A member of the RNA family "mir-30 microRNA precursor family" from Gallus gallus, 78 nucleotides long. This family consists of the mammalian microRNA (miRNA) precursor mir-30a. Animal miRNAs are transcribed as ~70nt precursors and subsequently processed by the Dicer enzyme to give a ~22nt product. In this case the mature sequence comes from both the 3' (miR-30) and 5' (mir-97-6) arms of the precursor. The extents of the hairpin precursors are not generally known and are estimated based on hairpin prediction. The products are thought to have regulatory roles through complementarity to mRNA. The involvement of Dicer in miRNA processing suggests a relationship with the phenomenon of RNA interference. miRNAs are numbered based on the sequence of the mature RNA. For this family Rfam cites "Identification of novel genes coding for small expressed RNAs" (Lagos-Quintana et al., Science, 2001).

[Rfam]
RNA sequence: AUCGCUGCUGUAAACAUCCUUGACUGGAAGCUGUGAGGUGUCAGCGGGGGCUUUCAGUCGGAUGUUUACAGCUGCAGG
Numbered sequence: 001a002u003c004g005c006u007g008c009u010g011u012a013a014a015c016a017u018c019c020u021u022g023a024c025u026g027g028a029a030g031c032u033g034u035g036a037g038g039u040g041u042c043a044g045c046g047g048g049g050g051c052u053u054u055c056a057g058u059c060g061g062a063u064g065u066u067u068a069c070a071g072c073u074g075c076a077g078g
Stems, first nucleotide, its partner, number of pairs: 002077001004075002008071012023058010